Shown here is a 54-nucleotide RNA sequence from Salmo trutta, a member of the family "UnaL2 LINE 3' element". It scores 57 bits against the family's covariance model.
[Rfam]
RNA sequence: CCUAGUUCCUUCUGUAAGUCGCUCUGGAUAAGAGCGUCUGCUAAAAGACAAAUG
Numbered sequence: 001c002c003u004a005g006u007u008c009c010u011u012c013u014g015u016a017a018g019u020c021g022c023u024c025u026g027g028a029u030a031a032g033a034g035c036g037u038c039u040g041c042u043a044a045a046a047g048a049c050a051a052a053u054g
Base pairs, nucleotide, nucleotide: 013043014041015040016039020036021035022034023033024032025031